[Rfam]
RNA sequence: GUAUAUUCAUCGCUUAAUCCUCUUUUGAGGAGCGGGGGAACCAACGAAGCAUAAUCGCUUCAGGGGUGAAUUCUUUCUUUUGCAGAAAGAACGGGGACUCUCAGACCCGAAUCCGACAGCUAACCUCGUAGGCGUCAUGAGAGAGAUCAU
Number, nucleotide and partner (000 for none) at each position: 001g000002u000003a000004u000005a000006u000007u000008c000009a000010u000011c134012g133013c132014u131015u000016a000017a000018u031019c030020c029021u000022c000023u000024u000025u000026u000027g000028a000029g020030g019031a018032g129033c128034g127035g126036g125037g124038g000039a000040a000041c000042c063043a000044a000045c000046g000047a000048a000049g000050c000051a000052u000053a000054a000055u000056c000057g000058c000059u000060u000061c000062a000063g042064g114065g113066g112067u000068g000069a000070a000071u000072u090073c089074u088075u087076u000077c000078u000079u000080u000081u000082g000083c000084a000085g000086a000087a075088a074089g073090a072091a000092c000093g108094g107095g106096g000097a000098c000099u000100c000101u000102c000103a000104g000105a000106c095107c094108c093109g000110a000111a000112u066113c065114c064115g000116a000117c000118a000119g000120c000121u000122a000123a000124c037125c036126u035127c034128g033129u032130a000131g014132g013133c012134g011135u000136c000137a000138u000139g000140a000141g000142a000143g000144a000145g000146a000147u000148c000149a000150u000